[Rfam]
c-di-AMP riboswitch aptamer (ydaO/yuaA leader): a 142-nucleotide RNA from Brevibacillus fluminis.
RNA sequence: UCUAAUAGUAGGCCGAAUUCCGACAUGUUCGGAAGCGGGGGAACCAAUUUUUUGGGGUGAAUAGCUGUGUUUUUCUCACGGCUUAGGGCAACCUUUCUGACCGAACCCUUCAGCUAACCUCGUAGGCUCAAAGAGAGGAGCA
Numbered sequence: 001u002c003u004a005a006u007a008g009u010a011g012g013c014c015g016a017a018u019u020c021c022g023a024c025a026u027g028u029u030c031g032g033a034a035g036c037g038g039g040g041g042a043a044c045c046a047a048u049u050u051u052u053u054g055g056g057g058u059g060a061a062u063a064g065c066u067g068u069g070u071u072u073u074u075c076u077c078a079c080g081g082c083u084u085a086g087g088g089c090a091a092c093c094u095u096u097c098u099g100a101c102c103g104a105a106c107c108c109u110u111c112a113g114c115u116a117a118c119c120u121c122g123u124a125g126g127c128u129c130a131a132a133g134a135g136a137g138g139a140g141c142a
Stems, first nucleotide, its partner, number of pairs: 011128004018034005035123006045054002055108003063083006086102002089099001